TPP riboswitch aptamer (THI element): a 135-nucleotide RNA from Vandammella animalimorsus. A search with the family's covariance model found it, with a score of 59 bits. The organism belongs to Vandammella, within Bacteria.
[Rfam]
RNA sequence: CGCCGCACUCCGGGGUGCGCGCCUUGGGAGUCGGCUCUGAACACCGGCCCCAAAGGCGCGCUGAGAUGGCCCAGCGCCGAACCCGUCAACUUGAUCCGGUUAGUACCGGCGUAAGGAUGAGCUGGCAGCCGCCAA
Numbered sequence: 001c002g003c004c005g006c007a008c009u010c011c012g013g014g015g016u017g018c019g020c021g022c023c024u025u026g027g028g029a030g031u032c033g034g035c036u037c038u039g040a041a042c043a044c045c046g047g048c049c050c051c052a053a054a055g056g057c058g059c060g061c062u063g064a065g066a067u068g069g070c071c072c073a074g075c076g077c078c079g080a081a082c083c084c085g086u087c088a089a090c091u092u093g094a095u096c097c098g099g100u101u102a103g104u105a106c107c108g109g110c111g112u113a114a115g116g117a118u119g120a121g122c123u124g125g126c127a128g129c130c131g132c133c134a135a
Base pairs, nucleotide, nucleotide: 008121009120010119011085012084013083014082016079017061018060019059020058021057022056023055024054025053068078069077070076090115091114092113093112096109097108098107099106